Shown here is a 74-nucleotide part of an RNA from Allovahlkampfia spelaea, a member of the family "Eukaryotic small subunit ribosomal RNA". A reference for the family is Yusupov et al. (2001), "Crystal structure of the ribosome at 5.5 A resolution", Science. The base pairs follow the family's consensus structure, which is taken from published work. Rfam's curators put it in the seed alignment.
RNA sequence: ACCAACAAGAGAUUGGUAGUGAAACCAUUUAAUAGAUCCUCUCAGAAUCCAAGGGAAACCUAAAGUCUUUGGGU
Numbered sequence: 001a002c003c004a005a006c007a008a009g010a011g012a013u014u015g016g017u018a019g020u021g022a023a024a025c026c027a028u029u030u031a032a033u034a035g036a037u038c039c040u041c042u043c044a045g046a047a048u049c050c051a052a053g054g055g056a057a058a059c060c061u062a063a064a065g066u067c068u069u070u071g072g073g074u
Stems, first nucleotide, its partner, number of pairs: 001074003005066002009049002013045004018040002021038001023037001025035001053060002